[Rfam]
RNA sequence: GAGUUAAGUUAAACGGCGAGGUUAAGGGAUUUACAUUCCGGAGCCGAAGCGAAAGCGAGUUUUAAUAGAGCGUUUAGUCGUUUGAUUUAGACACGAAACCAAGUGAGCUAUUUAUGACCAGGUUGAAGCGUGGGUAAGACCUUGUGGAGGACCGAACCAGUACAUGUUGAAAAAUGUUUGGAUGAGUUGUGAAUAGGGGUGAAAGGCCAAUCAAACUUGGAGAUAUCUUGUU
Numbered sequence: 001g002a003g004u005u006a007a008g009u010u011a012a013a014c015g016g017c018g019a020g021g022u023u024a025a026g027g028g029a030u031u032u033a034c035a036u037u038c039c040g041g042a043g044c045c046g047a048a049g050c051g052a053a054a055g056c057g058a059g060u061u062u063u064a065a066u067a068g069a070g071c072g073u074u075u076a077g078u079c080g081u082u083u084g085a086u087u088u089a090g091a092c093a094c095g096a097a098a099c100c101a102a103g104u105g106a107g108c109u110a111u112u113u114a115u116g117a118c119c120a121g122g123u124u125g126a127a128g129c130g131u132g133g134g135u136a137a138g139a140c141c142u143u144g145u146g147g148a149g150g151a152c153c154g155a156a157c158c159a160g161u162a163c164a165u166g167u168u169g170a171a172a173a174a175u176g177u178u179u180g181g182a183u184g185a186g187u188u189g190u191g192a193a194u195a196g197g198g199g200u201g202a203a204a205g206g207c208c209a210a211u212c213a214a215a216c217u218u219g220g221a222g223a224u225a226u227c228u229u230g231u232u
Stems, first nucleotide, its partner, number of pairs: 005089013020045004026039003049056002059071004092230002095227001099220006108196011119184001121153004128145003132141002157181003162177004198208003
Bacterial large subunit ribosomal RNA: a 232-nucleotide part of an RNA from Chlamydia felis. Rfam's curators put it in the seed alignment. NCBI's taxonomy places the organism under Bacteria, Pseudomonadati, Chlamydiota, Chlamydiales, Chlamydia. The base pairs follow the family's consensus structure, which is taken from published work.